[Rfam]
RNA sequence: CCAGUUGAUGAUGACGAUCUGGUGUGCUUCAUCCUUGCCGGACUCGACCAGGAUUACAAUCCUAUGGUUGAGAACGUCAAUGGCCGCCUUGAUCCGAUCUCCCUCAGCGACCUCUACGCCCAGCUUCUAUCCACC
Numbered sequence: 001c002c003a004g005u006u007g008a009u010g011a012u013g014a015c016g017a018u019c020u021g022g023u024g025u026g027c028u029u030c031a032u033c034c035u036u037g038c039c040g041g042a043c044u045c046g047a048c049c050a051g052g053a054u055u056a057c058a059a060u061c062c063u064a065u066g067g068u069u070g071a072g073a074a075c076g077u078c079a080a081u082g083g084c085c086g087c088c089u090u091g092a093u094c095c096g097a098u099c100u101c102c103c104u105c106a107g108c109g110a111c112c113u114c115u116a117c118g119c120c121c122a123g124c125u126u127c128u129a130u131c132c133a134c135c
Base pairs, nucleotide, nucleotide: 004134005133007131008130089107090106091105092104
RNA: Small nucleolar RNA Z247